[Rfam]
RNA sequence: CGGCUGUAAUGGUCACAAACCAAGAAGACCUCUACUUCCCAGAUCUCUUCACCCAUUGCGUCGCAAGACACUACCAGAGGUGCCCAGUUCGAACAUGGCGGUGGUUCCCCACUCGUGCAGGUAACUCACGAUGCUGUGGGAGCCUUAAGCAAUGAAGAUAAUUGUUUGAGGGAGGUUUCACUCUGCAGAACGAUCUUCACCGUGGUGUGGCGGUAUUGGAUUACACUUGCUGUGUGGUUUGGGUGUGGUGUUUGGGUUGAGCGUCAACCUUUUUUU
Numbered sequence: 001c002g003g004c005u006g007u008a009a010u011g012g013u014c015a016c017a018a019a020c021c022a023a024g025a026a027g028a029c030c031u032c033u034a035c036u037u038c039c040c041a042g043a044u045c046u047c048u049u050c051a052c053c054c055a056u057u058g059c060g061u062c063g064c065a066a067g068a069c070a071c072u073a074c075c076a077g078a079g080g081u082g083c084c085c086a087g088u089u090c091g092a093a094c095a096u097g098g099c100g101g102u103g104g105u106u107c108c109c110c111a112c113u114c115g116u117g118c119a120g121g122u123a124a125c126u127c128a129c130g131a132u133g134c135u136g137u138g139g140g141a142g143c144c145u146u147a148a149g150c151a152a153u154g155a156a157g158a159u160a161a162u163u164g165u166u167u168g169a170g171g172g173a174g175g176u177u178u179c180a181c182u183c184u185g186c187a188g189a190a191c192g193a194u195c196u197u198c199a200c201c202g203u204g205g206u207g208u209g210g211c212g213g214u215a216u217u218g219g220a221u222u223a224c225a226c227u228u229g230c231u232g233u234g235u236g237g238u239u240u241g242g243g244u245g246u247g248g249u250g251u252u253u254g255g256g257u258u259g260a261g262c263g264u265c266a267a268c269c270u271u272u273u274u275u276u
Base pairs, nucleotide, nucleotide: 002014003013004012018272019271026264030261031260032259034257035256036255042253043252045250047248048247050245051244052243053242054241055240056073058071060069061068062067075232076231077230078228079227080226081225082224084219085218086217087216088215089213090212091211093208094207095206096205098203099202100201101200103144105142106141107140108139109138110136111135113131114130115129116128117127119126120125145149153199154198155197156196157195158194159193163192164191165190166189167188172183173182174181

Rfam assigns this 276-nucleotide sequence from Phialocephala subalpina to the family "Fungal signal recognition particle RNA". The family has 50 seed sequences and 748 matches in Rfam 15.1. The base pairs follow the family's consensus structure, which is taken from published work. Rfam classes the family as a non-coding RNA gene. Its Rfam clan is "SRP clan". A search with the family's covariance model found it, with a score of 140 bits.